About this RNA
Rfam assigns this 68-nucleotide RNA sequence to the family "RAGATH-18 RNA". The sequence is in the family's curated seed alignment.
RNA sequence: GAUGUGGAGUGUUAUAUCAAACAUGAGUAGAAUUCAAUAUGAUUCAAAAGUGGACACGAAAACCUAAA
Numbered sequence: 001g002a003u004g005u006g007g008a009g010u011g012u013u014a015u016a017u018c019a020a021a022c023a024u025g026a027g028u029a030g031a032a033u034u035c036a037a038u039a040u041g042a043u044u045c046a047a048a049a050g051u052g053g054a055c056a057c058g059a060a061a062a063c064c065u066a067a068a
Base pairs, nucleotide, nucleotide: 002065004063005062009057010056011055012054013053022052023051024050030045031044032043034042035041
The base pairs follow the family's consensus structure, which is taken from published work. Rfam classes the family as a small RNA. Rfam describes the family as follows. Actinobacteria, Firmicutes, Fusobacteria, Thermotogae (1 example).